[Rfam]
RNA sequence: AAAGUCCCACCUGCUCUCAGUUAACCUUCUGAUGGGCAGUAGUGAACUCCACACGCAUCUCAGUGAUGCGUUGUGUGAAGCUGGAGGAAUCAAGGAUUCAGGCCGCGCUAUUGAGCCUCGAAAAAGAGUUUGUAUUUGUGGUCUGUUAAGAUAAUCUGUUGAUUUUUUUUAUCAAUAGAGAAAGCCGACACUGUGGCAGCUGUGGAAGGCUAAAGUCUGGAAGUCGUUCUGGUUAGGUUUUCAGACACCACCGUGGUCUUAGAACG
Numbered sequence: 001a002a003a004g005u006c007c008c009a010c011c012u013g014c015u016c017u018c019a020g021u022u023a024a025c026c027u028u029c030u031g032a033u034g035g036g037c038a039g040u041a042g043u044g045a046a047c048u049c050c051a052c053a054c055g056c057a058u059c060u061c062a063g064u065g066a067u068g069c070g071u072u073g074u075g076u077g078a079a080g081c082u083g084g085a086g087g088a089a090u091c092a093a094g095g096a097u098u099c100a101g102g103c104c105g106c107g108c109u110a111u112u113g114a115g116c117c118u119c120g121a122a123a124a125a126g127a128g129u130u131u132g133u134a135u136u137u138g139u140g141g142u143c144u145g146u147u148a149a150g151a152u153a154a155u156c157u158g159u160u161g162a163u164u165u166u167u168u169u170u171a172u173c174a175a176u177a178g179a180g181a182a183a184g185c186c187g188a189c190a191c192u193g194u195g196g197c198a199g200c201u202g203u204g205g206a207a208g209g210c211u212a213a214a215g216u217c218u219g220g221a222a223g224u225c226g227u228u229c230u231g232g233u234u235a236g237g238u239u240u241u242c243a244g245a246c247a248c249c250a251c252c253g254u255g256g257u258c259u260u261a262g263a264a265c266g
Base pairs, nucleotide, nucleotide: 012038013037014036015035016034018031019030020029022235023234024233026232040092042090043089047086048085049084052077053076054075055074056073057072059070061068062067113258115257116256117255119253120252138251139250140249141248142247184210185209186208189204190203191202215246216245217244218243219242220241221240222239223238224237225236
Dot-bracket structure: ...........(((((.(((.[[[.[..)))..))))).(.((...(((..((((((.(.((....)).).))))))......)))..)).)....................(.(((.((.................(((((.........................................(((..(((..........)))...)))....(((((((((((......]]]])))))))))))))))))).))))........
This 266-nucleotide RNA from Candidatus Magnetomorum sp. HK-1 belongs to the Rfam family "Group II catalytic intron D1-D4-6". The base pairs follow the family's consensus structure.